[Rfam]
RNA: c-di-AMP riboswitch aptamer (ydaO/yuaA leader)
Organism: Yinghuangia soli
RNA sequence: GCGCAUGCACUGCCUUCCGGACGGGAGCGGGGGAACCAAGUGAUACGCCGUACCCGGGUCACCGGGUCCGGCUUGGGGUGAAGCCGCGUUGCACGCGGCCGGGCCGCUCCGGUCCGAAUCCGACAGCUCACCUCGCAGGCGGCAGGAGAGGAACG
Numbered sequence: 001g002c003g004c005a006u007g008c009a010c011u012g013c014c015u016u017c018c019g020g021a022c023g024g025g026a027g028c029g030g031g032g033g034a035a036c037c038a039a040g041u042g043a044u045a046c047g048c049c050g051u052a053c054c055c056g057g058g059u060c061a062c063c064g065g066g067u068c069c070g071g072c073u074u075g076g077g078g079u080g081a082a083g084c085c086g087c088g089u090u091g092c093a094c095g096c097g098g099c100c101g102g103g104c105c106g107c108u109c110c111g112g113u114c115c116g117a118a119u120c121c122g123a124c125a126g127c128u129c130a131c132c133u134c135g136c137a138g139g140c141g142g143c144a145g146g147a148g149a150g151g152a153a154c155g
Base pairs, nucleotide, nucleotide: 008141010139011138015026016025017024027136028135029134030133031132032131037075038074039073040072041071076121077120078119084098085097086096087095101115102114103113104112